This 96-nucleotide RNA from Cellulomonas sp. WB94 belongs to the Rfam family "Glycine riboswitch aptamer".
[Rfam]
RNA sequence: CGAACCGCGGCGGGAGAGUCCUCCCGUUCACGGCGAGGCGCCGAAGGAGCAAACCCUCCCCGGGAAACUCUCAGGCCCCCGUACCGCCACGGCGAG
Numbered sequence: 001c002g003a004a005c006c007g008c009g010g011c012g013g014g015a016g017a018g019u020c021c022u023c024c025c026g027u028u029c030a031c032g033g034c035g036a037g038g039c040g041c042c043g044a045a046g047g048a049g050c051a052a053a054c055c056c057u058c059c060c061c062g063g064g065a066a067a068c069u070c071u072c073a074g075g076c077c078c079c080c081g082u083a084c085c086g087c088c089a090c091g092g093c094g095a096g
Base pairs, nucleotide, nucleotide: 006091007090009088010087011086012085013084020038021037022036023035040076041075042074043072044071047070048069049068054062
The match comes from Rfam's covariance-model search (67 bits). The pairing is the family consensus, mapped onto this sequence.